mir-1301 microRNA precursor family: a 78-nucleotide sequence from Enhydra lutris.
The organism belongs to Enhydra lutris, within Eukaryota.

[Rfam]
RNA sequence: GGCUUGCGGGGGGUCACUCUGGGCACGCAGCACAUGUUUGGGAUGCUGCAGCCGCCUGGGAGUGACCUCACACAGUCC
Numbered sequence: 001g002g003c004u005u006g007c008g009g010g011g012g013g014u015c016a017c018u019c020u021g022g023g024c025a026c027g028c029a030g031c032a033c034a035u036g037u038u039u040g041g042g043a044u045g046c047u048g049c050a051g052c053c054g055c056c057u058g059g060g061a062g063u064g065a066c067c068u069c070a071c072a073c074a075g076u077c078c
Base pairs, nucleotide, nucleotide: 001078002077004075005074006073008071010069011068012067013066014065015064016063017062018061019060020058021057022056023055024054026051027049028048029047030046031045032044033042

The base pairs follow the family's consensus structure, which was predicted with RNAalifold.